[Rfam]
RNA sequence: GAGGGUGCUUAAACACAACACACACAGCUCGUCACAGACUGCCUGGGUGCCGGAAACGGUUGGCAGAUGGGGGUUGUGGAGGUUAGAAC
Numbered sequence: 001g002a003g004g005g006u007g008c009u010u011a012a013a014c015a016c017a018a019c020a021c022a023c024a025c026a027g028c029u030c031g032u033c034a035c036a037g038a039c040u041g042c043c044u045g046g047g048u049g050c051c052g053g054a055a056a057c058g059g060u061u062g063g064c065a066g067a068u069g070g071g072g073g074u075u076g077u078g079g080a081g082g083u084u085a086g087a088a089c
Stems, first nucleotide, its partner, number of pairs: 023078008035069002039066005049060004
RNA: t44 RNA